RNA sequence: GUGUCUCUAGCUUCUACAGUGUUUGGACAGAACAC
Numbered sequence: 001g002u003g004u005c006u007c008u009a010g011c012u013u014c015u016a017c018a019g020u021g022u023u024u025g026g027a028c029a030g031a032a033c034a035c
Stems, first nucleotide, its partner, number of pairs: 001035004006031003010028001012027003016023001017021001
Shown here is a 35-nucleotide sequence from Delphinapterus leucas, a member of the family "Iron response element I". Rfam links the family to the GO term response to iron ion. By type it is a cis-regulatory element. Pairs were carried over by alignment from the consensus structure, which is taken from published work. The match comes from Rfam's covariance-model search (36 bits).